[Rfam]
RNA: Small nucleolar RNA SNORA47
Organism: Mesocricetus auratus
RNA sequence: UGGAGGGCUGAGAAGGUGGGACAGCUCCAUACCAUGCUGCCUCCAUUGGUCAAGACCUCCAAGAGUAAAUAAAGGGCUGGUUACACAAGGGAUGUCCCUCCACCACCUUGGAGGGGCAGCACUGUGCUGGCCUACAUUCU
Numbered sequence: 001u002g003g004a005g006g007g008c009u010g011a012g013a014a015g016g017u018g019g020g021a022c023a024g025c026u027c028c029a030u031a032c033c034a035u036g037c038u039g040c041c042u043c044c045a046u047u048g049g050u051c052a053a054g055a056c057c058u059c060c061a062a063g064a065g066u067a068a069a070u071a072a073a074g075g076g077c078u079g080g081u082u083a084c085a086c087a088a089g090g091g092a093u094g095u096c097c098c099u100c101c102a103c104c105a106c107c108u109u110g111g112a113g114g115g116g117c118a119g120c121a122c123u124g125u126g127c128u129g130g131c132c133u134a135c136a137u138u139c140u
Base pairs, nucleotide, nucleotide: 002060003059004058005057006056015047016046017045018044019041020040022039023038024037025036086130089128090127092125093124094123100119103116104115106114107113